[Rfam]
RNA sequence: GUAUUGCCAUCUGCGAAUGUGCGUUCCAUCACUUCAAACCUGACGCCAGGAUCAGUAUGAUGGAAUGAGAUGAACCCUUGCCGCUGGCGGUGAGGGUUUUCUUUUGGA
Numbered sequence: 001g002u003a004u005u006g007c008c009a010u011c012u013g014c015g016a017a018u019g020u021g022c023g024u025u026c027c028a029u030c031a032c033u034u035c036a037a038a039c040c041u042g043a044c045g046c047c048a049g050g051a052u053c054a055g056u057a058u059g060a061u062g063g064a065a066u067g068a069g070a071u072g073a074a075c076c077c078u079u080g081c082c083g084c085u086g087g088c089g090g091u092g093a094g095g096g097u098u099u100u101c102u103u104u105u106g107g108a
Stems, first nucleotide, its partner, number of pairs: 015035003019032003072099012
The family of this 108-nucleotide RNA sequence from Kluyvera genomosp. 3 is "Enterobacteria rnk leader". A reference for the family is Naville and Gautheret (2010), "Premature terminator analysis sheds light on a hidden world of bacterial transcriptional attenuation", Genome Biol. The source organism's lineage runs through Bacteria, Pseudomonadati, Pseudomonadota, Enterobacteriaceae and Kluyvera.